[Rfam]
RNA sequence: UAUAUUUGCAGCCUCAACGAAAAACUCGUUGGUACGCAUAAAAAUCAUUUAAAUAAUAUUGGCAUG
Numbered sequence: 001u002a003u004a005u006u007u008g009c010a011g012c013c014u015c016a017a018c019g020a021a022a023a024a025c026u027c028g029u030u031g032g033u034a035c036g037c038a039u040a041a042a043a044a045u046c047a048u049u050u051a052a053a054u055a056a057u058a059u060u061g062g063c064a065u066g
Stems, first nucleotide, its partner, number of pairs: 014032006
RNA: S15-Flavobacteria ribosomal protein leader